[Rfam]
RNA sequence: AUGGGUUAGGGCAGAAUACGCGGCCUGCAAAAUCAGAUGAUAACCGACGCUAACCGCGCCGGUUAUUUUUUUGC
Numbered sequence: 001a002u003g004g005g006u007u008a009g010g011g012c013a014g015a016a017u018a019c020g021c022g023g024c025c026u027g028c029a030a031a032a033u034c035a036g037a038u039g040a041u042a043a044c045c046g047a048c049g050c051u052a053a054c055c056g057c058g059c060c061g062g063u064u065a066u067u068u069u070u071u072u073g074c
Stems, first nucleotide, its partner, number of pairs: 011021002041065006048058002

The family of this 74-nucleotide sequence from Pantoea agglomerans is "Enterobacterial sRNA STnc240". It scores 66 bits against the family's covariance model.